[Rfam]
RNA sequence: CCGCCUCCUGAAACAAGUAAUCGAGAAUAGGCCGUGCUGGUGAGAACCAGCCUAUCCUGGAUUACUUGAACCAGGCUGAGG
Numbered sequence: 001c002c003g004c005c006u007c008c009u010g011a012a013a014c015a016a017g018u019a020a021u022c023g024a025g026a027a028u029a030g031g032c033c034g035u036g037c038u039g040g041u042g043a044g045a046a047c048c049a050g051c052c053u054a055u056c057c058u059g060g061a062u063u064a065c066u067u068g069a070a071c072c073a074g075g076c077u078g079a080g081g
Base pairs, nucleotide, nucleotide: 002080004078007075008074009073010072014068015067016066017065018064019063020062021061022060024058025057027055028054029053030052031051032050
A member of the RNA family "mir-26 microRNA precursor family" from Oncorhynchus tshawytscha, 81 nucleotides long. Rfam links the family to the GO terms miRNA-mediated post-transcriptional gene silencing and RISC complex. For this family Rfam cites "Identification of novel genes coding for small expressed RNAs" (Lagos-Quintana et al., Science, 2001). NCBI's taxonomy places the organism under Eukaryota, Actinopterygii, Salmonidae, Salmoninae, Oncorhynchus.